[Rfam]
RNA: mir-1788 microRNA precursor family
Organism: Hippoglossus hippoglossus
RNA sequence: UUGUUUUCGAGGCUUGUUUUAAGUUGCCUGCGACUUGUACACGGACUCAGGCAGCUAAAGCAAGUCUGGGACGCCA
Numbered sequence: 001u002u003g004u005u006u007u008c009g010a011g012g013c014u015u016g017u018u019u020u021a022a023g024u025u026g027c028c029u030g031c032g033a034c035u036u037g038u039a040c041a042c043g044g045a046c047u048c049a050g051g052c053a054g055c056u057a058a059a060g061c062a063a064g065u066c067u068g069g070g071a072c073g074c075c076a
Base pairs, nucleotide, nucleotide: 003074004073006071007070008069010067011066012065013064014063015062016061017060018059019058020057022056023055024054025053026052027051028050029049030048032046